[Rfam]
Nucleotides: 112
Base pairs, nucleotide, nucleotide: 011102014098015097016096017095018094019093023089024088025087026086027085028084029083030082031081032080
Number, partner (000 for none) and nucleotide at each position: 001000c002000u003000u004000a005000c006000a007000g008000a009000g010000u011102u012000c013000a014098u015097u016096g017095g018094c019093a020000u021000u022000c023089u024088g025087u026086c027085c028084a029083c030082c031081u032080c033000g034000c035000a036000c037000u038000a039000u040000c041000a042000u043000a044000g045000a046000a047000c048000a049000a050000g051000u052000c053000c054000u055000u056000c057000c058000u059000u060000u061000u062000c063000u064000u065000c066000u067000a068000u069000g070000g071000u072000c073000u074000u075000u076000c077000a078000u079000g080032g081031a082030g083029g084028u085027g086026g087025g088024c089023a090000u091000a092000c093019u094018g095017c096016c097015a098014a099000c100000u101000g102011a103000g104000c105000u106000c107000u108000g109000u110000u111000a112000g

The record is a 112-nucleotide sequence from Gossypium stocksii, which matches "MIR394 microRNA precursor family" in Rfam. Taxonomically the source falls in Gossypium (Eukaryota, Streptophytina, Euphyllophyta, rosids). Its family is annotated with miRNA-mediated post-transcriptional gene silencing and RISC complex in the Gene Ontology. The literature on the family includes a 2004 paper in Mol Cell by Jones-Rhoades and Bartel, "Computational identification of plant microRNAs and their targets, including a stress-induced miRNA". The base pairs follow the family's consensus structure, which was predicted with WAR.